[Rfam]
RNA sequence: UCCAGCGGUAGUCAGCUGUCCAGGGCAGUACUGUGCCUGUGACAGUGUUACACUGCUGGGAGAUGAAGAUCAGUCAUUUCUUCUGGCGGUUGUCCCCGUUCUGGAGACAGCUGAAGCCAAAAAGAAGUGGUGACGUGCUUCCCUGAGAGUGCGCUAAGGGUUUGAUUUCCCUCCUCAGUGCUAGUCCGGGAGCAUACAUG
Numbered sequence: 001u002c003c004a005g006c007g008g009u010a011g012u013c014a015g016c017u018g019u020c021c022a023g024g025g026c027a028g029u030a031c032u033g034u035g036c037c038u039g040u041g042a043c044a045g046u047g048u049u050a051c052a053c054u055g056c057u058g059g060g061a062g063a064u065g066a067a068g069a070u071c072a073g074u075c076a077u078u079u080c081u082u083c084u085g086g087c088g089g090u091u092g093u094c095c096c097c098g099u100u101c102u103g104g105a106g107a108c109a110g111c112u113g114a115a116g117c118c119a120a121a122a123a124g125a126a127g128u129g130g131u132g133a134c135g136u137g138c139u140u141c142c143c144u145g146a147g148a149g150u151g152c153g154c155u156a157a158g159g160g161u162u163u164g165a166u167u168u169c170c171c172u173c174c175u176c177a178g179u180g181c182u183a184g185u186c187c188g189g190g191a192g193c194a195u196a197c198a199u200g
Base pairs, nucleotide, nucleotide: 001060002059003058004057005056006055007054008053009052011051012050015046016045017044018043019042020041021039022038023037024036070133071132072131078123079122081120082119084116087113088112089111091109092108093107094106096104097103135195136194137193138192139191140190141189142188151181152180153179155177157175158174159173160172
A member of the RNA family "Small nucleolar RNA SNORA74" from Alectura lathami, 200 nucleotides long.
U19 belongs to the H/ACA class of snoRNAs. snoRNAs bind a number of proteins (including dyskerin, Gar1p and Nop10p in the case of the H/ACA class) to form snoRNP complexes. This class are thought to guide the sites of modification of uridines to pseudouridines by forming direct base pairing interactions with substrate RNAs. Targets may include ribosomal and spliceosomal RNAs but the exact functions of many snoRNAs, including U19, are not confirmed.
A reference for the family is Ganot et al. (1997), "The family of box ACA small nucleolar RNAs is defined by an evolutionarily conserved secondary structure and ubiquitous sequence elements essential for RNA accumulation", Genes Dev.
It scores 102 bits against the family's covariance model.
Pairs were carried over by alignment from the consensus structure, which was predicted with PFOLD.
Rfam 15.1 lists 1,348 matches to the family in 628 species.